[Rfam]
RNA sequence: CUGGUACCGGUUCACGUCCUCCGACCCGCAGGGCGACCCGGCACC
Numbered sequence: 001c002u003g004g005u006a007c008c009g010g011u012u013c014a015c016g017u018c019c020u021c022c023g024a025c026c027c028g029c030a031g032g033g034c035g036a037c038c039c040g041g042c043a044c045c
Stems, first nucleotide, its partner, number of pairs: 003045003007041004015035006022028002